[Rfam]
This 416-nucleotide RNA from Cellulosimicrobium sp. CUA-896 belongs to the Rfam family "Bacterial RNase P class A".
Nucleotides: 416
Base pairs, nucleotide, nucleotide: 001412002411003410004409005408006407007406008405009404010403011401012357013356014355015354016353017352018351020047021046023044024043025042026041027040028039029038030037052399053398054397056396057395058394059393060392061244062243063242064241068292069291071290073240074239075238076237077236078092079091080090081089082088093107094105095104096103097102108235109234113233114232115229116228117227130174131173132170133169134168136167137166138165139164182200183199184198185197186196187195202224203222204221205220206219207218208217209216210215248314249313250312251311257305258304259303260302261301262300284297285296286295287294288293321340322339323338324337325336326335327334328333
Number, partner (000 for none) and nucleotide at each position: 001412c002411g003410a004409g005408u006407c007406g008405g009404u010403c011401g012357g013356a014355c015354g016353g017352u018351c019000g020047c021046g022000u023044c024043g025042g026041g027040a028039g029038g030037c031000c032000u033000u034000c035000a036000g037030g038029u039028c040027u041026c042025c043024c044023g045000c046021c047020g048000a049000g050000g051000a052399a053398c054397g055000u056396c057395c058394g059393g060392g061244c062243u063242c064241c065000a066000c067000a068292g069291g070000g071290c072000g073240a074239g075238g076237u077236g078092g079091u080090g081089g082088g083000u084000a085000a086000c087000g088082c089081c090080c091079a092078c093107c094105c095104g096103g097102g098000g099000u100000g101000a102097c103096c104095c105094g106000c107093g108235g109234g110000a111000c112000a113233g114232u115229g116228c117227c118000a119000c120000a121000g122000a123000g124000a125000a126000c127000a128000g129000a130174c131173c132170g133169c134168c135000c136167g137166c138165g139164c140000c141000c142000g143000c144000c145000g146000a147000g148000g149000c150000c151000g152000a153000g154000g155000c156000c157000c158000c159000g160000g161000c162000a163000g164139g165138u166137g167136c168134g169133g170132u171000a172000a173131g174130g175000g176000u177000g178000a179000a180000a181000c182200g183199g184198u185197g186196g187195u188000g189000u190000a191000a192000g193000a194000g195187a196186c197185c198184a199183c200182c201000a202224g203222c204221g205220g206219g207218c208217c209216g210215g211000g212000u213000g214000a215210c216209c217208g218207g219206u220205c221204c222203g223000g224202c225000u226000c227117g228116g229115u230000a231000a232114a233113c234109c235108c236077c237076a238075c239074c240073u241064g242063g243062a244061g245000c246000a247000a248314g249313g250312u251311c252000a253000g254000a255000c256000a257305g258304a259303c260302u261301g262300u263000g264000u265000u266000c267000g268000a269000g270000g271000g272000c273000g274000g275000c276000c277000c278000g279000c280000c281000c282000g283000a284297u285296u286295c287294u288293c289000u290071g291069u292068c293288g294287a295286g296285a297284a298000g299000c300262a301261c302260a303259g304258u305257c306000g307000g308000g309000u310000a311251g312250a313249c314248c315000g316000c317000u318000g319000g320000a321340g322339g323338c324337g325336u326335a327334c328333g329000g330000c331000a332000a333328c334327g335326u336325g337324c338323g339322u340321c341000g342000u343000a344000g345000a346000u347000g348000g349000a350000u351018g352017a353016c354015c355014g356013u357012c358000g359000c360000c361000c362000g363000c364000g365000c366000g367000g368000g369000g370000g371000u372000g373000a374000c375000c376000g377000c378000g379000c380000g381000c382000g383000g384000g385000a386000a387000c388000a389000g390000a391000a392060c393059c394058c395057g396056g397054c398053g399052u400000a401011c402000a403010g404009a405008c406007c407006g408005g409004c410003u411002c412001g413000u414000c415000c416000g
The match comes from Rfam's covariance-model search (270 bits).